[Rfam]
This 238-nucleotide RNA sequence from Colletotrichum fioriniae belongs to the Rfam family "Small nucleolar RNA snR191". Its family is annotated with RNA processing and nucleolus in the Gene Ontology.
RNA sequence: ACCCCAGUGUCUUUGUCAGGAAGCAUUCCGCACUCUUUGAGUGCCUACAAUGGAAGUUCUCCGUUAAACACUGGGAAAAUCAAGGGCUGUCUCGCUGUCCUGGUCCUUGGAUCAGGGCUGAUGGGAUCCGUUUUGGAUUUCCUAUCAUGAGACAGAAUUGCUUCCGAUGAGUUGAAGUCUGCCAGUGCUCUUUCGAGCCUUUCGAUGGUGGUAUUUCUUAGUAGUGAAGCAUACAUAC
Numbered sequence: 001a002c003c004c005c006a007g008u009g010u011c012u013u014u015g016u017c018a019g020g021a022a023g024c025a026u027u028c029c030g031c032a033c034u035c036u037u038u039g040a041g042u043g044c045c046u047a048c049a050a051u052g053g054a055a056g057u058u059c060u061c062c063g064u065u066a067a068a069c070a071c072u073g074g075g076a077a078a079a080u081c082a083a084g085g086g087c088u089g090u091c092u093c094g095c096u097g098u099c100c101u102g103g104u105c106c107u108u109g110g111a112u113c114a115g116g117g118c119u120g121a122u123g124g125g126a127u128c129c130g131u132u133u134u135g136g137a138u139u140u141c142c143u144a145u146c147a148u149g150a151g152a153c154a155g156a157a158u159u160g161c162u163u164c165c166g167a168u169g170a171g172u173u174g175a176a177g178u179c180u181g182c183c184a185g186u187g188c189u190c191u192u193u194c195g196a197g198c199c200u201u202u203c204g205a206u207g208g209u210g211g212u213a214u215u216u217c218u219u220a221g222u223a224g225u226g227a228a229g230c231a232u233a234c235a236u237a238c
Base pairs, nucleotide, nucleotide: 003075004074005073006072007071019062020061021060022058023057024056026055027054028053029052031043032042033041034040035039087155088154089153090152091151095120097118098117099116100115101114103112104111105110123143124140125139126138127137128136129135130134159231160230161229163227164226174217175216176215177214180210181209182208183207187198188197189196190195
The base pairs follow the family's consensus structure, which was predicted with WAR. The family's RNA type in Rfam is H/ACA-box small nucleolar RNA.